Shown here is a 68-nucleotide RNA from Paralcaligenes ureilyticus, a member of the family "Fluoride riboswitch aptamer (crcB RNA motif)".
The source organism's lineage runs through Bacteria, Betaproteobacteria, Burkholderiales, Alcaligenaceae and Paralcaligenes.
It scores 45 bits against the family's covariance model.
[Rfam]
RNA sequence: ACUUGCCGCGGAGAUGGCAUUCCUCCUUUAACCGCCGGCACUCGCCCGCUAAUGAUGCCUACACGUUC
Numbered sequence: 001a002c003u004u005g006c007c008g009c010g011g012a013g014a015u016g017g018c019a020u021u022c023c024u025c026c027u028u029u030a031a032c033c034g035c036c037g038g039c040a041c042u043c044g045c046c047c048g049c050u051a052a053u054g055a056u057g058c059c060u061a062c063a064c065g066u067u068c
Base pairs, nucleotide, nucleotide: 010026011025012024013023016059017058018057019056020055021054034049035048037046038045039044